[Rfam]
RNA sequence: GCCGAGCUGAGUAACGAGAGCUUGUAACCCGAGUGGGGGUAUUAAGGUGAUGGAACUUUGGCCCAGAAUUAAGGGGUCGGGUCUGGUGUGGCCCUUUACUGGCCCGCCCAUUCCAAGCGAAGAGUUGUUCCAUGUGGUCUGAGCGAAAGCUCUGGGCCACGUGGCUCCUAAAGAGGAGGGCACCGCGUGAGGCUGGGUUCACAGAGCAGCGCCUACCUCCCGCUCUCUGCAGUGGAAGGAUAACGGGUUGGUGCCACCUUGAUCCACCGUGGCCCGCUAGACUGGUCCAAACGAACCUAAUCCUUC
Numbered sequence: 001g002c003c004g005a006g007c008u009g010a011g012u013a014a015c016g017a018g019a020g021c022u023u024g025u026a027a028c029c030c031g032a033g034u035g036g037g038g039g040u041a042u043u044a045a046g047g048u049g050a051u052g053g054a055a056c057u058u059u060g061g062c063c064c065a066g067a068a069u070u071a072a073g074g075g076g077u078c079g080g081g082u083c084u085g086g087u088g089u090g091g092c093c094c095u096u097u098a099c100u101g102g103c104c105c106g107c108c109c110a111u112u113c114c115a116a117g118c119g120a121a122g123a124g125u126u127g128u129u130c131c132a133u134g135u136g137g138u139c140u141g142a143g144c145g146a147a148a149g150c151u152c153u154g155g156g157c158c159a160c161g162u163g164g165c166u167c168c169u170a171a172a173g174a175g176g177a178g179g180g181c182a183c184c185g186c187g188u189g190a191g192g193c194u195g196g197g198u199u200c201a202c203a204g205a206g207c208a209g210c211g212c213c214u215a216c217c218u219c220c221c222g223c224u225c226u227c228u229g230c231a232g233u234g235g236a237a238g239g240a241u242a243a244c245g246g247g248u249u250g251g252u253g254c255c256a257c258c259u260u261g262a263u264c265c266a267c268c269g270u271g272g273c274c275c276g277c278u279a280g281a282c283u284g285g286u287c288c289a290a291a292c293g294a295a296c297c298u299a300a301u302c303c304u305u306c
Base pairs, nucleotide, nucleotide: 001040002039003038004023005022006021007020008019028037029036030035044305045304046303047302052297053296056293058290059289060288063285064284065283066282069280070279071278074275075274076273077272078271079265080264081263082262083261085259086258088257089256090255091254093253099251100250101249102248103247104246105245106244108239109238111237112236113235114234115233117230118229119228121226122225123224124223125222127167130164131163132162133161134160135159136158137157138156139155140154141153142151143150144149168173175220176219177218178217179216185212186211187210188209193204194203195202
RNA: Plant signal recognition particle RNA
Organism: Prunus yedoensis